RNA sequence: AGAGUCGGUUGAGCAGUCGCUAUUUUUAUCGCAAGAUAAAGGUAGAGGAAAGUCCGGGCUCCAAUGGGCGAGGUGCCAGGUAACGCCUGGGAGGCGUGAGCCUACGGCAAGUGCCACAGAAAAUAUACCGCCUAGCUUCUGAAUUUUUCACUUAUCAACCACCGUAAGGUUGUAGAGAAGAGAGAUAAUUCAGGGGCUGGGUAAGGGUGAAAUGGUGCGGUAAGAGCGCACCGCGCAGCUGGUAACAGAGGUGGCAUGGUAAACCCCACCUGGAGCAAGAUCAAAUAGAGGAACAGACGCGUGGCCCGCGCGGUUCCUGGGUAGAUUGCUUGAGCCGACAGGUGACUUUCGGCCUAGAUGAAUGGCUGCUCUCGACAGAACCCGGCUUAUAGACUGACUCUUUCU
Numbered sequence: 001a002g003a004g005u006c007g008g009u010u011g012a013g014c015a016g017u018c019g020c021u022a023u024u025u026u027u028a029u030c031g032c033a034a035g036a037u038a039a040a041g042g043u044a045g046a047g048g049a050a051a052g053u054c055c056g057g058g059c060u061c062c063a064a065u066g067g068g069c070g071a072g073g074u075g076c077c078a079g080g081u082a083a084c085g086c087c088u089g090g091g092a093g094g095c096g097u098g099a100g101c102c103u104a105c106g107g108c109a110a111g112u113g114c115c116a117c118a119g120a121a122a123a124u125a126u127a128c129c130g131c132c133u134a135g136c137u138u139c140u141g142a143a144u145u146u147u148u149c150a151c152u153u154a155u156c157a158a159c160c161a162c163c164g165u166a167a168g169g170u171u172g173u174a175g176a177g178a179a180g181a182g183a184g185a186u187a188a189u190u191c192a193g194g195g196g197c198u199g200g201g202u203a204a205g206g207g208u209g210a211a212a213u214g215g216u217g218c219g220g221u222a223a224g225a226g227c228g229c230a231c232c233g234c235g236c237a238g239c240u241g242g243u244a245a246c247a248g249a250g251g252u253g254g255c256a257u258g259g260u261a262a263a264c265c266c267c268a269c270c271u272g273g274a275g276c277a278a279g280a281u282c283a284a285a286u287a288g289a290g291g292a293a294c295a296g297a298c299g300c301g302u303g304g305c306c307c308g309c310g311c312g313g314u315u316c317c318u319g320g321g322u323a324g325a326u327u328g329c330u331u332g333a334g335c336c337g338a339c340a341g342g343u344g345a346c347u348u349u350c351g352g353c354c355u356a357g358a359u360g361a362a363u364g365g366c367u368g369c370u371c372u373c374g375a376c377a378g379a380a381c382c383c384g385g386c387u388u389a390u391a392g393a394c395u396g397a398c399u400c401u402u403u404c405u
Stems, first nucleotide, its partner, number of pairs: 001401010011390001012370007020045009050388003054385005059275004066307004071271005076090005091105001092103004106266002111264002113260003128206002130202016214232006233255001234253003239248003279327004289318006298312005334353005340347002
This 405-nucleotide sequence from Crenothrix polyspora belongs to the Rfam family "Bacterial RNase P class A". From the family's description: Ribonuclease P (RNase P) is a ubiquitous endoribonuclease, found in archaea, bacteria and eukarya as well as chloroplasts and mitochondria. Its best characterised activity is the generation of mature 5'-ends of tRNAs by cleaving the 5'-leader elements of precursor-tRNAs. Cellular RNase Ps are ribonucleoproteins. NCBI's taxonomy places the organism under Bacteria, Pseudomonadota, Gammaproteobacteria, Methylococcales, Crenothrix. Rfam classes the family as a ribozyme.